[Rfam]
RNA sequence: ACCGCUGAGCUAUCUCUCCAGCCCCCCAAAACAUGUUUUUUAAAAGAUUAUGCUCAAGGGCUGGAGAGAUGGCUCAGUGGU
Numbered sequence: 001a002c003c004g005c006u007g008a009g010c011u012a013u014c015u016c017u018c019c020a021g022c023c024c025c026c027c028a029a030a031a032c033a034u035g036u037u038u039u040u041u042a043a044a045a046g047a048u049u050a051u052g053c054u055c056a057a058g059g060g061c062u063g064g065a066g067a068g069a070u071g072g073c074u075c076a077g078u079g080g081u
Base pairs, nucleotide, nucleotide: 002080003079004078005077006076007075008074009073010072011071012070013069014068015067016066017065018064019063020062021061022060023059024058
The family of this 81-nucleotide RNA from Nannospalax galili is "mir-3473 microRNA precursor family". It scores 73 bits against the family's covariance model. Its family is annotated with RISC complex, cellular response to mechanical stimulus and miRNA-mediated post-transcriptional gene silencing in the Gene Ontology.